RNA sequence: GCCGCGCGUUGUAUGGAAGACUAGUGAUUUUGUUGUUUUGAUUAAUUAACAAGGAAUCACUAAUCUGCCUACAAAGCGUCGGC
Numbered sequence: 001g002c003c004g005c006g007c008g009u010u011g012u013a014u015g016g017a018a019g020a021c022u023a024g025u026g027a028u029u030u031u032g033u034u035g036u037u038u039u040g041a042u043u044a045a046u047u048a049a050c051a052a053g054g055a056a057u058c059a060c061u062a063a064u065c066u067g068c069c070u071a072c073a074a075a076g077c078g079u080c081g082g083c
Stems, first nucleotide, its partner, number of pairs: 002082003006077002009074005015068001018066003024060007033052005
The record is an 83-nucleotide RNA from Manduca sexta, which matches "mir-7 microRNA precursor family" in Rfam. A reference for the family is Ambros (2001), "microRNAs: tiny regulators with great potential", Cell. It is one of the family's seed sequences. The base pairs follow the family's consensus structure, which was predicted with PFOLD. NCBI's taxonomy places the organism under Eukaryota, Opisthokonta, Protostomia, Neoptera, Manduca. This family represents the microRNA (miRNA) precursor mir-7.